[Rfam]
RNA sequence: GAGUAAAUACAGCUCUUUUAGAAUUCUUUUCUAACAGUUUUUCUGACUUUGAUCAGAAAAACCUA
Number, nucleotide and partner (000 for none) at each position: 001g000002a000003g000004u000005a000006a000007a000008u000009a000010c000011a000012g000013c000014u000015c000016u000017u000018u000019u000020a000021g000022a000023a000024u000025u000026c000027u000028u000029u000030u000031c000032u000033a000034a000035c000036a000037g062038u061039u060040u059041u058042u057043c056044u055045g054046a053047c000048u000049u000050u000051g000052a000053u046054c045055a044056g043057a042058a041059a040060a039061a038062c037063c000064u000065a000